A member of the RNA family "mir-4716 microRNA precursor family" from Macaca mulatta, 84 nucleotides long. The source organism's lineage runs through Eukaryota, Metazoa, Deuterostomia, Eutheria and Macaca. Gene Ontology terms of the family: miRNA-mediated post-transcriptional gene silencing and RISC complex. The sequence is in the family's curated seed alignment.
RNA sequence: CAUACUUUGUCUCCAUGUGUCCUUCCCUCUUCUGUAUACAUGUAUACAGGAGGAAGGGGGAAGGACACAUGGAGACAAAGUGUG
Numbered sequence: 001c002a003u004a005c006u007u008u009g010u011c012u013c014c015a016u017g018u019g020u021c022c023u024u025c026c027c028u029c030u031u032c033u034g035u036a037u038a039c040a041u042g043u044a045u046a047c048a049g050g051a052g053g054a055a056g057g058g059g060g061a062a063g064g065a066c067a068c069a070u071g072g073a074g075a076c077a078a079a080g081u082g083u084g
Stems, first nucleotide, its partner, number of pairs: 001084033034047005